[Rfam]
RNA sequence: CACUUGAAGGGUUUGAUCCUGGCUCAGAAUGAACGCUGGUGGCGUGGAUUAGGCAUGCAAGUCGUGCGGCGAGAGGCCCUUCGGGGCCUUGAGCAGCGGCGAACGGGGUAGUAAGGCGUCGGUGACCUGCCGGAAGGACCAGUAUAGCGGGGGGAAACCCCCAGUAAUCCUGGGCGAUGCACCUCCUUGAGGGAGAGUGCCAGAGGGUGCGAUUCCGCCUUCCGAGGGGCCGACGUGACACCAGGUAGUUGGCGGGGUAACGGCCCACCAAGCCGAAGACGUCUAGGGGGCGUGAGAGCGCGGCCCCCACCACCGGGACUGAGACACUGCCCGGACAUCUACGGAUGGCUGCAGUCGAGAAUCUUCCGCAAUGGACGCAAGUCCGACGGAGCGACGCCACGUGCGGGACGACGGCCCUCGGGUUGUAAACCGCUGUUGACGGGGAUCAAGGCUUCCGGGGCACACCCCGGUUGCUUGAGAGAGCCGUUGAGGAAGCGCGGGCUAAGUACGUGCCAGCAGCCGCGGUAAUACGUACUGCGCGAGCGUUAUUCGGAAUCACUG
Numbered sequence: 001c002a003c004u005u006g007a008a009g010g011g012u013u014u015g016a017u018c019c020u021g022g023c024u025c026a027g028a029a030u031g032a033a034c035g036c037u038g039g040u041g042g043c044g045u046g047g048a049u050u051a052g053g054c055a056u057g058c059a060a061g062u063c064g065u066g067c068g069g070c071g072a073g074a075g076g077c078c079c080u081u082c083g084g085g086g087c088c089u090u091g092a093g094c095a096g097c098g099g100c101g102a103a104c105g106g107g108g109u110a111g112u113a114a115g116g117c118g119u120c121g122g123u124g125a126c127c128u129g130c131c132g133g134a135a136g137g138a139c140c141a142g143u144a145u146a147g148c149g150g151g152g153g154g155a156a157a158c159c160c161c162c163a164g165u166a167a168u169c170c171u172g173g174g175c176g177a178u179g180c181a182c183c184u185c186c187u188u189g190a191g192g193g194a195g196a197g198u199g200c201c202a203g204a205g206g207g208u209g210c211g212a213u214u215c216c217g218c219c220u221u222c223c224g225a226g227g228g229g230c231c232g233a234c235g236u237g238a239c240a241c242c243a244g245g246u247a248g249u250u251g252g253c254g255g256g257g258u259a260a261c262g263g264c265c266c267a268c269c270a271a272g273c274c275g276a277a278g279a280c281g282u283c284u285a286g287g288g289g290g291c292g293u294g295a296g297a298g299c300g301c302g303g304c305c306c307c308c309a310c311c312a313c314c315g316g317g318a319c320u321g322a323g324a325c326a327c328u329g330c331c332c333g334g335a336c337a338u339c340u341a342c343g344g345a346u347g348g349c350u351g352c353a354g355u356c357g358a359g360a361a362u363c364u365u366c367c368g369c370a371a372u373g374g375a376c377g378c379a380a381g382u383c384c385g386a387c388g389g390a391g392c393g394a395c396g397c398c399a400c401g402u403g404c405g406g407g408a409c410g411a412c413g414g415c416c417c418u419c420g421g422g423u424u425g426u427a428a429a430c431c432g433c434u435g436u437u438g439a440c441g442g443g444g445a446u447c448a449a450g451g452c453u454u455c456c457g458g459g460g461c462a463c464a465c466c467c468c469g470g471u472u473g474c475u476u477g478a479g480a481g482a483g484c485c486g487u488u489g490a491g492g493a494a495g496c497g498c499g500g501g502c503u504a505a506g507u508a509c510g511u512g513c514c515a516g517c518a519g520c521c522g523c524g525g526u527a528a529u530a531c532g533u534a535c536u537g538c539g540c541g542a543g544c545g546u547u548a549u550u551c552g553g554a555a556u557c558a559c560u561g
Base pairs, nucleotide, nucleotide: 009025010024011023012022013021027551028550029549030548032547033546034545035544036543037542039400040399041398042397043396044395045393046392052356053355054354056353057352058351061100062099063098066097067096070093073090074089075088076087077086078085079084107311108310109309116236117235118234119233120232121231122230123229126228127227131224132223133222134221135220136219137218139173140172141171142170149162150161151160152159153158179200180199181198182197184195186193187192205216206215207214237283238282239281244274245273246272249271250270251269252268254266255265256264286308287307288306289305290301291300292299293298313334314333315332316331317330336347337346338345339344364390366389367388368387372385373384374383375382376381403433404432405431406430413424414423415422416421437492438488439487440486441485442484447479453473495540496539497538498537499536506535507534508533509532510531516523517522
Background: Bacterial small subunit ribosomal RNA: a 561-nucleotide part of an RNA from Alienimonas californiensis. The match comes from Rfam's covariance-model search (1427 bits). For this family Rfam cites "The comparative RNA web (CRW) site: an online database of comparative sequence and structure information for ribosomal, intron, and other RNAs" (Cannone et al., BMC Bioinformatics, 2002). The family is grouped with related families in Rfam's "SSU clan". Pairs were carried over by alignment from the consensus structure, which is taken from published work. Lineage of the source: Bacteria > Pseudomonadati > Planctomycetota > Planctomycetaceae > Alienimonas.